Shown here is a 370-nucleotide part of an RNA from Lachnospiraceae bacterium 3_1_57FAA_CT1, a member of the family "Bacterial large subunit ribosomal RNA".
The family's consensus secondary structure is taken from published work.
Taxonomically the source falls in Lachnospiraceae (Bacteria, Bacillati, Clostridia, Lachnospirales).
[Rfam]
RNA sequence: GAGAUGGAGGUGGGAAUCCUCCAGGCCGAAUAUCUAAGGUUUCCAGGGUAAAGCUGAUCUGCCCUGGGUAAGUCGGGGCCUAAGGCGAGGUCGAAAGACGUAGCCGAUGGACAACAGGUUGAGAUUCCUGUACUAUCAUAUGACAGAACUGUGGGGACACAGAGGGAAAGCCUGAGCCGGGAAAGGGAAACCCGGUGCAAGCGAAGUAGGAGCUGGACUGGCAAAUCCGUCCAGCAAUCCGAAGGCGUGAUGCGUACCGAACUGAAGUAGGGAAGCAGGUGAGCCAGCUGUCGAGAAAAGCCGCUAUUGUUCAUAUGAUACCCGUACCGUAAACCGACACAGGUGGAUGAGGAGAGAAUCCUAAGGCCGG
Numbered sequence: 001g002a003g004a005u006g007g008a009g010g011u012g013g014g015a016a017u018c019c020u021c022c023a024g025g026c027c028g029a030a031u032a033u034c035u036a037a038g039g040u041u042u043c044c045a046g047g048g049u050a051a052a053g054c055u056g057a058u059c060u061g062c063c064c065u066g067g068g069u070a071a072g073u074c075g076g077g078g079c080c081u082a083a084g085g086c087g088a089g090g091u092c093g094a095a096a097g098a099c100g101u102a103g104c105c106g107a108u109g110g111a112c113a114a115c116a117g118g119u120u121g122a123g124a125u126u127c128c129u130g131u132a133c134u135a136u137c138a139u140a141u142g143a144c145a146g147a148a149c150u151g152u153g154g155g156g157a158c159a160c161a162g163a164g165g166g167a168a169a170g171c172c173u174g175a176g177c178c179g180g181g182a183a184a185g186g187g188a189a190a191c192c193c194g195g196u197g198c199a200a201g202c203g204a205a206g207u208a209g210g211a212g213c214u215g216g217a218c219u220g221g222c223a224a225a226u227c228c229g230u231c232c233a234g235c236a237a238u239c240c241g242a243a244g245g246c247g248u249g250a251u252g253c254g255u256a257c258c259g260a261a262c263u264g265a266a267g268u269a270g271g272g273a274a275g276c277a278g279g280u281g282a283g284c285c286a287g288c289u290g291u292c293g294a295g296a297a298a299a300g301c302c303g304c305u306a307u308u309g310u311u312c313a314u315a316u317g318a319u320a321c322c323c324g325u326a327c328c329g330u331a332a333a334c335c336g337a338c339a340c341a342g343g344u345g346g347a348u349g350a351g352g353a354g355a356g357a358a359u360c361c362u363a364a365g366g367c368c369g370g
Stems, first nucleotide, its partner, number of pairs: 005023006024368004032348004038328002043067006052060002074324004079110002084105003088101001090099003114131005134320010151304004159291004165285002170280005176196006197253002201248003209240002212235007220228002255273001257271002260268001334343002350362004